[Rfam]
RNA sequence: GUAAAAACGAAUACAAAAACUCGUAUAAUCGCGGGAAUAUGGCCCGCAAGUUUCUACCAGAUUGCCGUAAACAAUCUGACUACGAGUGAAAAUGACGACUUU
Numbered sequence: 001g002u003a004a005a006a007a008c009g010a011a012u013a014c015a016a017a018a019a020c021u022c023g024u025a026u027a028a029u030c031g032c033g034g035g036a037a038u039a040u041g042g043c044c045c046g047c048a049a050g051u052u053u054c055u056a057c058c059a060g061a062u063u064g065c066c067g068u069a070a071a072c073a074a075u076c077u078g079a080c081u082a083c084g085a086g087u088g089a090a091a092a093u094g095a096c097g098a099c100u101u102u
Stems, first nucleotide, its partner, number of pairs: 019087007029049001031047005058078007

The record is a 102-nucleotide RNA from Aneurinibacillus danicus, which matches "Purine riboswitch aptamer" in Rfam.
A search with the family's covariance model found it, with a score of 96 bits.